This 77-nucleotide sequence from Musca domestica belongs to the Rfam family "mir-34 microRNA precursor family". It scores 66 bits against the family's covariance model. The base pairs follow the family's consensus structure, which was predicted with RNAalifold. Rfam describes the family as follows. Human mir-34a was discovered computationally and later experimentally verified. The family is grouped with related families in Rfam's "mir-34 clan". Lineage of the source: Eukaryota > Pancrustacea > Endopterygota > Schizophora > Musca. Its family is annotated with miRNA-mediated post-transcriptional gene silencing and RISC complex in the Gene Ontology.
[Rfam]
RNA sequence: AGCGCUUUGGCAGUGUGGUUAGCUGGUUGUGUAACUUGAAUUAAUAUCACAGCCACUAUCUUCACUGCCGCCGCGAU
Numbered sequence: 001a002g003c004g005c006u007u008u009g010g011c012a013g014u015g016u017g018g019u020u021a022g023c024u025g026g027u028u029g030u031g032u033a034a035c036u037u038g039a040a041u042u043a044a045u046a047u048c049a050c051a052g053c054c055a056c057u058a059u060c061u062u063c064a065c066u067g068c069c070g071c072c073g074c075g076a077u
Stems, first nucleotide, its partner, number of pairs: 003075003009069002012066004017061002020058003024055008